Shown here is a 124-nucleotide RNA from Staphylococcus sp. HMSC071G07, a member of the family "Ribosomal protein L20 leader". From the family's description: This family is a putative r-protein leader autoregulatory structure found in B. subtilis and other low-GC Gram-positive bacteria. It is located in the 5' untranslated regions of mRNAs encoding initiation factor 3 followed by ribosomal proteins L35 and L20 (infC-rpmI-rplT). A Rho-independent transcription terminator structure that is probably involved in regulation is included at the 3' end. It scores 74 bits against the family's covariance model. NCBI's taxonomy places the organism under Bacteria, Bacillati, Bacilli, Caryophanales, Staphylococcus.
RNA sequence: CGAACCAAGUAGAAGUAUCCGCUUCUCACCUGUAGCGACGCGUAAAGCAGUUGGCAGGUCAAUAGACAUGGACUAAUCAUGUGAUUGAAGAGCGGGUACAGUAUACCCGCUCUUUUUACUUGGU
Numbered sequence: 001c002g003a004a005c006c007a008a009g010u011a012g013a014a015g016u017a018u019c020c021g022c023u024u025c026u027c028a029c030c031u032g033u034a035g036c037g038a039c040g041c042g043u044a045a046a047g048c049a050g051u052u053g054g055c056a057g058g059u060c061a062a063u064a065g066a067c068a069u070g071g072a073c074u075a076a077u078c079a080u081g082u083g084a085u086u087g088a089a090g091a092g093c094g095g096g097u098a099c100a101g102u103a104u105a106c107c108c109g110c111u112c113u114u115u116u117u118a119c120u121u122g123g124u
Base pairs, nucleotide, nucleotide: 011026012025013024014023015022016021028059029058030057037052038051039050040048041047091111092110093109094108095107096106097105098104